[Rfam]
RNA sequence: UGGACAUUUAUUUUUAUUCAGUUUCUUCUUAAGGUGAAAAAAACCCUUUGCAAAUGUCCUCGAGAAAUAUAGUAUUUUUCUUUUCACCCUUUGUAAGUAAAAAGGGUGGAUCAUUCCACUACUGACAUAU
Numbered sequence: 001u002g003g004a005c006a007u008u009u010a011u012u013u014u015u016a017u018u019c020a021g022u023u024u025c026u027u028c029u030u031a032a033g034g035u036g037a038a039a040a041a042a043a044c045c046c047u048u049u050g051c052a053a054a055u056g057u058c059c060u061c062g063a064g065a066a067a068u069a070u071a072g073u074a075u076u077u078u079u080c081u082u083u084u085c086a087c088c089c090u091u092u093g094u095a096a097g098u099a100a101a102a103a104g105g106g107u108g109g110a111u112c113a114u115u116c117c118a119c120u121a122c123u124g125a126c127a128u129a130u
Base pairs, nucleotide, nucleotide: 002059003058004057005056006055007054008053009052011050021044022043023042024040026038027037028036070124071123072122073121074120089104090103091102092101

Description: Shown here is a 130-nucleotide RNA sequence from Myotis davidii, a member of the family "Small Cajal body specific RNA 24". Rfam links the family to the GO terms nucleolus, Cajal body and RNA processing. Rfam's curators write: scaRNAs are a specific class of small nuclear RNAs which localise to the Cajal bodies and guide the modification of RNA polymerase II transcribed spliceosomal RNAs U1, U2, U4, U5 and U12. Taxonomically the source falls in Myotis (Eukaryota, Bilateria, Deuterostomia, Sarcopterygii). The base pairs follow the family's consensus structure, which was predicted with RNAfold. Rfam classes the family as a small Cajal body RNA.